Small nucleolar RNA SNORA11: a 128-nucleotide RNA sequence from Myotis lucifugus. The organism belongs to Myotis, within Eukaryota. U107 (SNORA11) is a member of the H/ACA class of snoRNAs that guide the sites of modification of uridines to pseudouridines. Rfam classes the family as an H/ACA-box small nucleolar RNA. Gene Ontology terms of the family: RNA processing and nucleolus. A reference for the family is Gu et al. (2005), "A novel experimental approach for systematic identification of box H/ACA snoRNAs from eukaryotes", Nucleic Acids Res. The base pairs follow the family's consensus structure, which was predicted with RNAalifold.
[Rfam]
RNA sequence: UGGGUGUGGAGAGAGCAGAGCGCCUGAAGAAUGGCUUCUCUGUGUACAACACAUCCAACAGCAACUUGGGCUUACUCCUCACGGUGGCAGAAUACUAUGGCCUUCCUGUGACAUUACGCCCUAUACAU
Numbered sequence: 001u002g003g004g005u006g007u008g009g010a011g012a013g014a015g016c017a018g019a020g021c022g023c024c025u026g027a028a029g030a031a032u033g034g035c036u037u038c039u040c041u042g043u044g045u046a047c048a049a050c051a052c053a054u055c056c057a058a059c060a061g062c063a064a065c066u067u068g069g070g071c072u073u074a075c076u077c078c079u080c081a082c083g084g085u086g087g088c089a090g091a092a093u094a095c096u097a098u099g100g101c102c103u104u105c106c107u108g109u110g111a112c113a114u115u116a117c118g119c120c121c122u123a124u125a126c127a128u
Stems, first nucleotide, its partner, number of pairs: 002056007013045001015043006022035003068121004076113001080110002083103002086101001088099002091096001